[Rfam]
RNA sequence: CUCUUAUUCAGAGUUGGUGGAGAUACAUAGGAUCGAUGAAGCCACGGCAACCCCAUUGAAGGAAGGUGCCUCCCUGAGCGAGUAGUGUUCGAACAAUAAGAG
Numbered sequence: 001c002u003c004u005u006a007u008u009c010a011g012a013g014u015u016g017g018u019g020g021a022g023a024u025a026c027a028u029a030g031g032a033u034c035g036a037u038g039a040a041g042c043c044a045c046g047g048c049a050a051c052c053c054c055a056u057u058g059a060a061g062g063a064a065g066g067u068g069c070c071u072c073c074c075u076g077a078g079c080g081a082g083u084a085g086u087g088u089u090c091g092a093a094c095a096a097u098a099a100g101a102g
Stems, first nucleotide, its partner, number of pairs: 001102008013045001015044004022034003028078001031075001046070004051066002053062002079091005
Dot-bracket structure: ((((((((....(.((((...(((...[..[)))......)))))((((.((((......))..))))))....]..](((((...)))))...))))))))
The record is a 102-nucleotide RNA from Acetatifactor muris, which matches "SAM riboswitch aptamer (S box leader)" in Rfam. Rfam links the family to the GO term regulation of gene expression. Taxonomically the source falls in Acetatifactor (Bacteria, Bacillati, Lachnospirales, Lachnospiraceae).